The record is a 65-nucleotide RNA from Sphenodon punctatus, which matches "Selenocysteine insertion sequence 1" in Rfam. The incorporation of selenocysteine into a protein sequence is directed by an in-frame UGA codon (usually a stop codon) within the coding region of the mRNA. Selenoprotein mRNAs contain a conserved secondary structure in the 3' UTR that is required for the distinction of UGA stop from UGA selenocysteine. The selenocysteine insertion sequence (SECIS) is around 60 nt in length and adopts a hairpin structure which is sufficiently well-defined and conserved to act as a computational screen for selenoprotein genes. It is annotated as a cis-regulatory element.

RNA sequence: GUGUAUUCAUGAAGACCACCAACAAAAGAGUAACUUACUCAGUUGGUGAUCAGAUGCUAUUACAC
Numbered sequence: 001g002u003g004u005a006u007u008c009a010u011g012a013a014g015a016c017c018a019c020c021a022a023c024a025a026a027a028g029a030g031u032a033a034c035u036u037a038c039u040c041a042g043u044u045g046g047u048g049a050u051c052a053g054a055u056g057c058u059a060u061u062a063c064a065c
Stems, first nucleotide, its partner, number of pairs: 001065005014051002017048007029039003

It scores 40 bits against the family's covariance model.